[Rfam]
RNA sequence: GUGGGUACGGCCCAGUGGGGGGGAGAGGGACGUGUCCUGGGCCCAGGUGCGCCCAGGGCGCAGUCGGACUAACCGAGCCCCUGUGCCGCCCCCAG
Number, nucleotide and partner (000 for none) at each position: 001g000002u094003g093004g092005g091006u000007a000008c088009g087010g086011c085012c000013c083014a082015g000016u000017g081018g080019g079020g078021g000022g074023g073024a000025g000026a070027g069028g065029g064030a000031c000032g000033u060034g000035u058036c057037c056038u055039g054040g053041g052042c051043c000044c000045a000046g000047g000048u000049g000050c000051g042052c041053c040054c039055a038056g037057g036058g035059c000060g033061c000062a000063g000064u029065c028066g000067g000068a000069c027070u026071a000072a000073c023074c022075g000076a000077g000078c020079c019080c018081c017082u014083g013084u000085g011086c010087c009088g008089c000090c000091c005092c004093c003094a002095g000
A member of the RNA family "mir-1225 microRNA precursor family" from Phyllostomus discolor, 95 nucleotides long. Taxonomically the source falls in Phyllostomus (Eukaryota, Vertebrata, Teleostomi, Mammalia). The literature on the family includes a 2007 paper in Mol Cell by Berezikov et al., "Mammalian mirtron genes".